The family of this 115-nucleotide sequence from Trifolium pratense is "MIR2593 microRNA precursor family". The base pairs follow the family's consensus structure, which was predicted with RNAalifold.
RNA sequence: AUAUAAGGGAAAGUUUACUUUUUAGAUACAUUGAGUAACUAAUGUAUCUAGCCUAUAUUAUAGGUCAGAUAAAUUAGUUACCCAAUGUAUCUAAAAGGUAAGUUUUCUCUUAUAU
Numbered sequence: 001a002u003a004u005a006a007g008g009g010a011a012a013g014u015u016u017a018c019u020u021u022u023u024a025g026a027u028a029c030a031u032u033g034a035g036u037a038a039c040u041a042a043u044g045u046a047u048c049u050a051g052c053c054u055a056u057a058u059u060a061u062a063g064g065u066c067a068g069a070u071a072a073a074u075u076a077g078u079u080a081c082c083c084a085a086u087g088u089a090u091c092u093a094a095a096a097g098g099u100a101a102g103u104u105u106u107c108u109c110u111u112a113u114a115u
Stems, first nucleotide, its partner, number of pairs: 002114006009107005015101011027089007035081009049067001051065002